[Rfam]
RNA sequence: ACCUGACAGUUGCAAUGGUGCGACUGACAUUUGCCAAGACAGGAGACUUAUAUG
Number, nucleotide and partner (000 for none) at each position: 001a000002c043003c042004u041005g040006a000007c026008a025009g024010u023011u022012g000013c000014a000015a000016u000017g000018g000019u000020g000021c000022g011023a010024c009025u008026g007027a000028c000029a000030u000031u000032u000033g000034c000035c000036a000037a000038g000039a000040c005041a004042g003043g002044a000045g000046a000047c000048u000049u000050a000051u000052a000053u000054g000
RNA: Mu-gpT-DE RNA